A member of the RNA family "Small nucleolar RNA SNORA47" from Sorex araneus, 136 nucleotides long. The organism belongs to Sorex, within Eukaryota. Gene Ontology terms of the family: RNA processing and nucleolus. The family has 20 seed sequences and 733 matches in Rfam 15.1.
RNA sequence: UGGAGGCUGAGAAGGUGAGGCAGCUCAGUACCAUGCUGCUUUUCAUUGGUUAAGACCUCCGAGAGCAAAGGCAGCCAAGGCAGAGCACGCCCCUCUGCUACCUUCAGAAGGGCAGCGCUGUGUUGGCUGACAUCUG
Numbered sequence: 001u002g003g004a005g006g007c008u009g010a011g012a013a014g015g016u017g018a019g020g021c022a023g024c025u026c027a028g029u030a031c032c033a034u035g036c037u038g039c040u041u042u043u044c045a046u047u048g049g050u051u052a053a054g055a056c057c058u059c060c061g062a063g064a065g066c067a068a069a070g071g072c073a074g075c076c077a078a079g080g081c082a083g084a085g086c087a088c089g090c091c092c093c094u095c096u097g098c099u100a101c102c103u104u105c106a107g108a109a110g111g112g113c114a115g116c117g118c119u120g121u122g123u124u125g126g127c128u129g130a131c132a133u134c135u136g
Base pairs, nucleotide, nucleotide: 002060003059004058005057006056014047015046016045017044018041019040020039021038022037023036024035079128080127081126084124085123087121088120089119095115096114097113098112099111101110

The family's consensus secondary structure was predicted with WAR.